About this RNA:
Rfam assigns this 82-nucleotide RNA sequence from Carlito syrichta to the family "Small nucleolar RNA SNORD115". Rfam classes the family as a C/D-box small nucleolar RNA. A search with the family's covariance model found it, with a score of 43 bits. On this family, see Cavaille et al., Proc Natl Acad Sci U S A 2000: "Identification of brain-specific and imprinted small nucleolar RNA genes exhibiting an unusual genomic organization".
RNA sequence: GGGUCAAUGAUCAAACCUUUGCCUUGAUUCUAGAGAUGUGUUGUCUUAAAAGUCAUGCUCAAUAUAAUUAAGCUUAGAACCC
Numbered sequence: 001g002g003g004u005c006a007a008u009g010a011u012c013a014a015a016c017c018u019u020u021g022c023c024u025u026g027a028u029u030c031u032a033g034a035g036a037u038g039u040g041u042u043g044u045c046u047u048a049a050a051a052g053u054c055a056u057g058c059u060c061a062a063u064a065u066a067a068u069u070a071a072g073c074u075u076a077g078a079a080c081c082c
Stems, first nucleotide, its partner, number of pairs: 001082004006074001008072001